[Rfam]
RNA sequence: CCAUCAUCACCAUCACCCUGACUAGUCUUUCAGGCGAUGAGUGCUGGAAGACGGUUUAGCGGCCUUCCGGUGGAUUGAGUGCAAAGAAAACCCUCGGAAGAUUAUCUUCCGAGGGUUUUUUUAU
Numbered sequence: 001c002c003a004u005c006a007u008c009a010c011c012a013u014c015a016c017c018c019u020g021a022c023u024a025g026u027c028u029u030u031c032a033g034g035c036g037a038u039g040a041g042u043g044c045u046g047g048a049a050g051a052c053g054g055u056u057u058a059g060c061g062g063c064c065u066u067c068c069g070g071u072g073g074a075u076u077g078a079g080u081g082c083a084a085a086g087a088a089a090a091c092c093c094u095c096g097g098a099a100g101a102u103u104a105u106c107u108u109c110c111g112a113g114g115g116u117u118u119u120u121u122u123a124u
Base pairs, nucleotide, nucleotide: 008043009042010041011039012038013037014036017034018033019032020031021030044070045069046068047067048066049065050064085121086120087119088118089117090116091115092114093113094112095111096110097109098108099107100106
This 124-nucleotide RNA sequence from Moellerella wisconsensis belongs to the Rfam family "Histidine operon leader". A search with the family's covariance model found it, with a score of 107 bits. The family's consensus secondary structure is taken from published work. The source organism's lineage runs through Bacteria, Pseudomonadota, Morganellaceae, Moellerella and Moellerella wisconsensis. For this family Rfam cites "Attenuation in amino acid biosynthetic operons" (Kolter and Yanofsky, Annu Rev Genet, 1982). From the family's description: At least 6 amino acid operons are known to be regulated by attenuation. In each a leader sequence of 150-200 bp is found upstream of the first gene in the operon. This leader sequence can assume two different secondary structures known as the terminator and the anti-terminator structure.